[Rfam]
RNA: M-box riboswitch aptamer (ykoK leader)
Organism: Tepidanaerobacter acetatoxydans
RNA sequence: CGAACUUCCCGUUAGGUGAGGCUCCUGUGCGAAUACAAGCCACUGCCCGGAAAUGUCGAGAGACACCAAUGGGUUAACAGGUUUUACCGGAUUAAGGUGGAAUCUAAUGUGGCUGGAAUUUAAGUUCCAAAGUCGCUCAGUGCUAAAACCGAUGACGAGGGGAAAAUAU
Numbered sequence: 001c002g003a004a005c006u007u008c009c010c011g012u013u014a015g016g017u018g019a020g021g022c023u024c025c026u027g028u029g030c031g032a033a034u035a036c037a038a039g040c041c042a043c044u045g046c047c048c049g050g051a052a053a054u055g056u057c058g059a060g061a062g063a064c065a066c067c068a069a070u071g072g073g074u075u076a077a078c079a080g081g082u083u084u085u086a087c088c089g090g091a092u093u094a095a096g097g098u099g100g101a102a103u104c105u106a107a108u109g110u111g112g113c114u115g116g117a118a119u120u121u122a123a124g125u126u127c128c129a130a131a132g133u134c135g136c137u138c139a140g141u142g143c144u145a146a147a148a149c150c151g152a153u154g155a156c157g158a159g160g161g162g163a164a165a166a167u168a169u
Stems, first nucleotide, its partner, number of pairs: 006164005011156002013095001015150003020144003025140003029136004039113005045074005054065004080104004086098003115128003